Lysine riboswitch aptamer: a 174-nucleotide sequence from Enterococcus phoeniculicola. The base pairs follow the family's consensus structure, which is taken from published work. From the family's description: Riboswitches are metabolite binding domains within certain messenger RNAs that serve as precision sensors for their corresponding targets.

RNA sequence: CAAUGAGGUAGAGGUCGCGAGACUUAUUAAUCCUGUGGAGUGAAGAAGACACGUUGAAACAGGCCUAGGAAGAAUCGCCGAAAUGUACUGUUCUCUCUUGAACUUUAUGUUGGGACACAAGUUAAUAGCUUGUGGACUGUCUUAGUAGUGAUACUAAGUUGCGCUAUGUUUUGU
Numbered sequence: 001c002a003a004u005g006a007g008g009u010a011g012a013g014g015u016c017g018c019g020a021g022a023c024u025u026a027u028u029a030a031u032c033c034u035g036u037g038g039a040g041u042g043a044a045g046a047a048g049a050c051a052c053g054u055u056g057a058a059a060c061a062g063g064c065c066u067a068g069g070a071a072g073a074a075u076c077g078c079c080g081a082a083a084u085g086u087a088c089u090g091u092u093c094u095c096u097c098u099u100g101a102a103c104u105u106u107a108u109g110u111u112g113g114g115a116c117a118c119a120a121g122u123u124a125a126u127a128g129c130u131u132g133u134g135g136a137c138u139g140u141c142u143u144a145g146u147a148g149u150g151a152u153a154c155u156a157a158g159u160u161g162c163g164c165u166a167u168g169u170u171u172u173g174u
Stems, first nucleotide, its partner, number of pairs: 006169001008167004017078004023072003032063005082111006090103004112138002116134007141158006